RNA: miR-430 microRNA precursor family
RNA sequence: AGAGCUACCCAAACACAAGCACUGACUUGAGUUAUGUAUGCAGUAAGUGCUACUUGUUGGGUAGUUUUG
Numbered sequence: 001a002g003a004g005c006u007a008c009c010c011a012a013a014c015a016c017a018a019g020c021a022c023u024g025a026c027u028u029g030a031g032u033u034a035u036g037u038a039u040g041c042a043g044u045a046a047g048u049g050c051u052a053c054u055u056g057u058u059g060g061g062u063a064g065u066u067u068u069g
Stems, first nucleotide, its partner, number of pairs: 004065007013057003018051006025044003